[Rfam]
RNA sequence: UUCUUCUUGUCGGAGUGCCUUUUAGGCUGAGACCGUUAAUUCGGGAUCCGCGGAACCUGAUCAGGUUAGAACCUGCGAAGGGAACAAGAGUACAGAUCAU
Numbered sequence: 001u002u003c004u005u006c007u008u009g010u011c012g013g014a015g016u017g018c019c020u021u022u023u024a025g026g027c028u029g030a031g032a033c034c035g036u037u038a039a040u041u042c043g044g045g046a047u048c049c050g051c052g053g054a055a056c057c058u059g060a061u062c063a064g065g066u067u068a069g070a071a072c073c074u075g076c077g078a079a080g081g082g083a084a085c086a087a088g089a090g091u092a093c094a095g096a097u098c099a100u
Base pairs, nucleotide, nucleotide: 006088007087008086009085010084011050012049013048014047016044017027018026019025020024034043035042056081057080058079062075063074064073065072
Background
The family of this 100-nucleotide RNA from Pantoea alhagi is "TPP riboswitch aptamer (THI element)". It scores 71 bits against the family's covariance model. The base pairs follow the family's consensus structure, which is taken from published work.